Rfam assigns this 59-nucleotide RNA sequence from Pseudomonas sp. StFLB209 to the family "gabT RNA".
It scores 52 bits against the family's covariance model.
Pairs were carried over by alignment from the consensus structure, which is taken from published work.
The organism belongs to Pseudomonas, within Bacteria.
[Rfam]
RNA sequence: GGUGGCCGAGAGGCCGCGCCAGUCGAUCAUCGUAUGCUGGCCCGGUUCUUCCUGCUGCU
Numbered sequence: 001g002g003u004g005g006c007c008g009a010g011a012g013g014c015c016g017c018g019c020c021a022g023u024c025g026a027u028c029a030u031c032g033u034a035u036g037c038u039g040g041c042c043c044g045g046u047u048c049u050u051c052c053u054g055c056u057g058c059u
Stems, first nucleotide, its partner, number of pairs: 001059006012047005018041006024032002